Overview:
The record is a 248-nucleotide part of an RNA from Candidatus Methanomethylophilus sp. 1R26, which matches "Archaeal large subunit ribosomal RNA" in Rfam.
RNA sequence: AGUGCCUGACGAGAAGGAUCCAUUAGUACGAGAGGAACAUGGAUUCGUCGCCUCUAGUUUAUCAGUUGUCUGACAAGGCAAGCUGAGUAGCCACGCGGUAGUUGAUAAGAGCUGAAGGCAUCUAAGCUCGAAGCAACCUUGAAAAAGAGGCACUAUAAGCCACUCUGUAUAUGAGGAGUUUGAUAGGAGCCGGAUGUAAGUACCGAGGCCAUCCGAGGUAUUCAGUCCUGGCUUACUAACGGUUUUGC
Numbered sequence: 001a002g003u004g005c006c007u008g009a010c011g012a013g014a015a016g017g018a019u020c021c022a023u024u025a026g027u028a029c030g031a032g033a034g035g036a037a038c039a040u041g042g043a044u045u046c047g048u049c050g051c052c053u054c055u056a057g058u059u060u061a062u063c064a065g066u067u068g069u070c071u072g073a074c075a076a077g078g079c080a081a082g083c084u085g086a087g088u089a090g091c092c093a094c095g096c097g098g099u100a101g102u103u104g105a106u107a108a109g110a111g112c113u114g115a116a117g118g119c120a121u122c123u124a125a126g127c128u129c130g131a132a133g134c135a136a137c138c139u140u141g142a143a144a145a146a147g148a149g150g151c152a153c154u155a156u157a158a159g160c161c162a163c164u165c166u167g168u169a170u171a172u173g174a175g176g177a178g179u180u181u182g183a184u185a186g187g188a189g190c191c192g193g194a195u196g197u198a199a200g201u202a203c204c205g206a207g208g209c210c211a212u213c214c215g216a217g218g219u220a221u222u223c224a225g226u227c228c229u230g231g232c233u234u235a236c237u238a239a240c241g242g243u244u245u246u247g248c
Stems, first nucleotide, its partner, number of pairs: 001154007010141004016046008047099005055093001057091001062086005067080005102136003109129005158244004162179005184238003187234005192228003200221005207214001

Overview: Pairs were carried over by alignment from the consensus structure, which is taken from published work. A search with the family's covariance model found it, with a score of 2645 bits.